RNA sequence: CCGUUCCUUCGGGGUAGGGUGAAAUUCCCAACCGGCGGUGAUGAGGCAAGGCCUCUUAGUCCGUGACCCGUUGCUUGAUUUCAAGUGACGGUGGAUUUGGUGAAACUCCAAAGCCGACAGUAAAGUCUGGAUGGGAGAAGGAUAUG
Number, nucleotide and partner (000 for none) at each position: 001c000002c000003g000004u000005u142006c141007c140008u139009u138010c137011g000012g000013g000014g000015u000016a000017g029018g028019g027020u000021g000022a000023a000024a000025u000026u000027c019028c018029c017030a000031a126032c125033c116034g115035g064036c063037g062038g061039u000040g000041a000042u000043g000044a000045g000046g000047c000048a000049a000050g000051g000052c000053c000054u000055c000056u000057u000058a000059g114060u113061c038062c037063g036064u035065g000066a000067c000068c091069c090070g089071u088072u000073g000074c000075u000076u000077g000078a000079u000080u000081u000082c000083a000084a000085g000086u000087g000088a071089c070090g069091g068092u000093g000094g000095a000096u112097u111098u110099g109100g108101u000102g000103a000104a000105a000106c000107u000108c100109c099110a098111a097112a096113g060114c059115c034116g033117a000118c129119a128120g127121u000122a000123a000124a000125g032126u031127c120128u119129g118130g000131a000132u000133g000134g000135g000136a000137g010138a009139a008140g007141g006142a005143u000144a000145u000146g000
Record summary
Rfam assigns this 146-nucleotide RNA sequence from Salipaludibacillus keqinensis to the family "FMN riboswitch aptamer (RFN element)". The source organism's lineage runs through Bacteria, Bacillati, Bacillota, Caryophanales and Salipaludibacillus.